[Rfam]
Background: Shown here is a 267-nucleotide sequence from Botryosphaeria dothidea, a member of the family "Group I catalytic intron". The literature on the family includes a 1990 paper in Annu Rev Biochem by Cech, "Self-splicing of group I introns". Rfam 15.1 lists 5,602 matches to the family in 1,395 species. NCBI's taxonomy places the organism under Eukaryota, Fungi, Pezizomycotina, dothideomyceta, Botryosphaeria. Group I catalytic introns are large self-splicing ribozymes. They catalyse their own excision from mRNA, tRNA and rRNA precursors in a wide range of organisms. Gene Ontology term of the family: Group I intron splicing.

RNA sequence: AACAUAGCUUUAUUCCAUCUUGUUAAUCAUGCAUUGCUUUAUAAGUGCAUGUAAAAUUCGACUAAUUGCUGGAAAGUCCUUUAUUUAUCUUUUAAAUUAUAGUAUAUAUGCUAGGAUAAUCAGCAGGGAAGCUUUUUGUAUAAUCAUACAAAAUAUACCUUCAACGACUAUACGUCGAAAGUACUAUUAUUAUAAAAUUAUAUUGUCGUACUAUAAUUUUAUUUAGAUUGUAUUAUGAUAUAGUCUAGUUAACUAGGUAACUAGUUA
Number, nucleotide and partner (000 for none) at each position: 001a000002a000003c000004a000005u025006a024007g023008c022009u000010u000011u000012a018013u017014u000015c000016c000017a013018u012019c000020u000021u000022g008023u007024u006025a005026a000027u000028c000029a040030u000031g038032c000033a000034u000035u000036g000037c000038u031039u000040u029041a000042u000043a000044a000045g000046u000047g000048c000049a000050u000051g000052u000053a000054a000055a000056a000057u179058u178059c177060g176061a000062c174063u000064a000065a000066u000067u125068g124069c123070u122071g121072g120073a000074a000075a000076g000077u116078c115079c114080u113081u000082u000083a000084u000085u000086u000087a000088u000089c000090u000091u000092u000093u000094a000095a000096a000097u000098u000099a000100u000101a000102g000103u000104a000105u000106a000107u000108a000109u000110g000111c000112u000113a080114g079115g078116a077117u000118a000119a000120u072121c071122a070123g069124c068125a067126g160127g159128g000129a000130a000131g000132c000133u153134u152135u000136u000137u000138g000139u148140a147141u146142a000143a000144u000145c000146a141147u140148a139149c000150a000151a000152a134153a133154u000155a000156u000157a000158c000159c127160u126161u000162c000163a000164a246165c000166g245167a244168c243169u242170a241171u000172a000173c000174g062175u000176c060177g059178a058179a057180a000181g000182u232183a231184c230185u000186a228187u227188u226189a000190u000191u000192a000193u000194a000195a000196a000197a000198u000199u000200a000201u000202a000203u000204u000205g000206u000207c000208g000209u000210a000211c000212u000213a000214u000215a000216a000217u000218u000219u000220u000221a000222u000223u000224u000225a000226g188227a187228u186229u000230g184231u183232a182233u000234u000235a000236u000237g000238a000239u000240a000241u170242a169243g168244u167245c166246u164247a000248g000249u000250u000251a000252a265253c264254u263255a262256g261257g000258u000259a000260a000261c256262u255263a254264g253265u252266u000267a000